RNA: Purine riboswitch aptamer
Organism: Paenibacillus bovis
RNA sequence: GAAUAAAUGAUGAUACAUCAUUGUAUAACCUCAAUAAUAUGGUUUGAGGGUCUCUACCAGGAACCGAACAAUCCUGAUUACAAGAUGAUGCGCAGCCCGC
Numbered sequence: 001g002a003a004u005a006a007a008u009g010a011u012g013a014u015a016c017a018u019c020a021u022u023g024u025a026u027a028a029c030c031u032c033a034a035u036a037a038u039a040u041g042g043u044u045u046g047a048g049g050g051u052c053u054c055u056a057c058c059a060g061g062a063a064c065c066g067a068a069c070a071a072u073c074c075u076g077a078u079u080a081c082a083a084g085a086u087g088a089u090g091c092g093c094a095g096c097c098c099g100c
Stems, first nucleotide, its partner, number of pairs: 021083005029049006058076005